FMN riboswitch aptamer (RFN element): a 133-nucleotide RNA sequence from Caproicibacter fermentans.
A search with the family's covariance model found it, with a score of 105 bits.

RNA sequence: AUCAGUCUUCGGGGCGAGGUGAAAUUCCUCACCGGCGGUAAAGCGGCAGUGAGCCGACAAGCCCGCGAGCGGAAACGCAGAUUUUGGUUGAAUUCCAAAGCCGACGGUAAAGUCCGGAUGGAAGAAGAAAAAC
Numbered sequence: 001a002u003c004a005g006u007c008u009u010c011g012g013g014g015c016g017a018g019g020u021g022a023a024a025u026u027c028c029u030c031a032c033c034g035g036c037g038g039u040a041a042a043g044c045g046g047c048a049g050u051g052a053g054c055c056g057a058c059a060a061g062c063c064c065g066c067g068a069g070c071g072g073a074a075a076c077g078c079a080g081a082u083u084u085u086g087g088u089u090g091a092a093u094u095c096c097a098a099a100g101c102c103g104a105c106g107g108u109a110a111a112g113u114c115c116g117g118a119u120g121g122a123a124g125a126a127g128a129a130a131a132a133c
Stems, first nucleotide, its partner, number of pairs: 006128005017029003031113002033103002035066004061101002069078003083099005105116003